Annotation:
Brucella sRNA CI27: a 170-nucleotide sequence from Mesorhizobium sp. L-8-10. A reference for the family is Dong et al. (2014), "Identification of novel sRNAs in Brucella abortus 2308", FEMS Microbiol Lett. A search with the family's covariance model found it, with a score of 76 bits.
RNA sequence: GCGCGGCUUAAGGCAUGUCUCCCGAAAGUGGGUACCGGUUUCGGGAUAAAGACAUGCGUCAAAUCAAAGACCUACAGCGUGUUGCGUGAAAUCCGUUUUCACGCAACACGCUGUAGGAGUUUCCUCUCCCCUUCACGGGGAAUGGAAAGGGUGGGAGGCUGACUUGAAGC
Numbered sequence: 001g002c003g004c005g006g007c008u009u010a011a012g013g014c015a016u017g018u019c020u021c022c023c024g025a026a027a028g029u030g031g032g033u034a035c036c037g038g039u040u041u042c043g044g045g046a047u048a049a050a051g052a053c054a055u056g057c058g059u060c061a062a063a064u065c066a067a068a069g070a071c072c073u074a075c076a077g078c079g080u081g082u083u084g085c086g087u088g089a090a091a092u093c094c095g096u097u098u099u100c101a102c103g104c105a106a107c108a109c110g111c112u113g114u115a116g117g118a119g120u121u122u123c124c125u126c127u128c129c130c131c132u133u134c135a136c137g138g139g140g141a142a143u144g145g146a147a148a149g150g151g152u153g154g155g156a157g158g159c160u161g162a163c164u165u166g167a168a169g170c
Stems, first nucleotide, its partner, number of pairs: 013057008022045002026041004031036001060166003064162003071117015087101003122156004129151004

The source organism's lineage runs through Bacteria, Pseudomonadati, Pseudomonadota, Alphaproteobacteria and Mesorhizobium.